RNA sequence: CAUCUCCGUCUCUCCCAAUCCUUGUACCAGUGUCUGAUUUACAGAUGACGCUGGACGGGGUUUGGGGGGGGCUGAGGGA
Numbered sequence: 001c002a003u004c005u006c007c008g009u010c011u012c013u014c015c016c017a018a019u020c021c022u023u024g025u026a027c028c029a030g031u032g033u034c035u036g037a038u039u040u041a042c043a044g045a046u047g048a049c050g051c052u053g054g055a056c057g058g059g060g061u062u063u064g065g066g067g068g069g070g071g072c073u074g075a076g077g078g079a
Stems, first nucleotide, its partner, number of pairs: 007077001009075001011069002013066003019059002023057003027054005
Overview:
Shown here is a 79-nucleotide RNA sequence from Danio rerio, a member of the family "mir-150 microRNA precursor family". On this family, see Friedlander et al., Nat Biotechnol 2008: "Discovering microRNAs from deep sequencing data using miRDeep".